[Rfam]
RNA sequence: CCGUAAGGGUGAGGUGGUUCGCCUUCAACUUAAAUGCUAGUCUAUUAUAAGGCUACAUUCCCAAAUUGCGGGAACACCCUAAUGCUCUCACUUCCAAGCUGACAUUUGAAAGAAUGCAGUGGCCAGGCUAAUCACCUGGGUAUGGACAUAACGUCGAGAGAUGAUACAAUGGGCUAUCCGCAUCCUUUCCCUUCAUACGCAUAGUAUAUGGAAAAGGUUCAGAGACUAAAUGGGAAUGGCUAGUUUAUUAAAUUCAACGUUUUAGAUGCGUACUGAAGUUAAUGAUACUAGUUAAGAUAUAGUCCGUCGGUAGGUGAAAACUUACG
Numbered sequence: 001c002c003g004u005a006a007g008g009g010u011g012a013g014g015u016g017g018u019u020c021g022c023c024u025u026c027a028a029c030u031u032a033a034a035u036g037c038u039a040g041u042c043u044a045u046u047a048u049a050a051g052g053c054u055a056c057a058u059u060c061c062c063a064a065a066u067u068g069c070g071g072g073a074a075c076a077c078c079c080u081a082a083u084g085c086u087c088u089c090a091c092u093u094c095c096a097a098g099c100u101g102a103c104a105u106u107u108g109a110a111a112g113a114a115u116g117c118a119g120u121g122g123c124c125a126g127g128c129u130a131a132u133c134a135c136c137u138g139g140g141u142a143u144g145g146a147c148a149u150a151a152c153g154u155c156g157a158g159a160g161a162u163g164a165u166a167c168a169a170u171g172g173g174c175u176a177u178c179c180g181c182a183u184c185c186u187u188u189c190c191c192u193u194c195a196u197a198c199g200c201a202u203a204g205u206a207u208a209u210g211g212a213a214a215a216g217g218u219u220c221a222g223a224g225a226c227u228a229a230a231u232g233g234g235a236a237u238g239g240c241u242a243g244u245u246u247a248u249u250a251a252a253u254u255c256a257a258c259g260u261u262u263u264a265g266a267u268g269c270g271u272a273c274u275g276a277a278g279u280u281a282a283u284g285a286u287a288c289u290a291g292u293u294a295a296g297a298u299a300u301a302g303u304c305c306g307u308c309g310g311u312a313g314g315u316g317a318a319a320a321c322u323u324a325c326g
Stems, first nucleotide, its partner, number of pairs: 006025008056238005062232002067182006077173003184217001188213001190211002196206003222305001224304005240291005246285001311324005
Group I catalytic intron: a 326-nucleotide RNA sequence from Monilinia fructicola. Lineage of the source: Eukaryota > Dikarya > Pezizomycotina > Sclerotiniaceae > Monilinia. A search with the family's covariance model found it, with a score of 77 bits. Group I catalytic introns are large self-splicing ribozymes.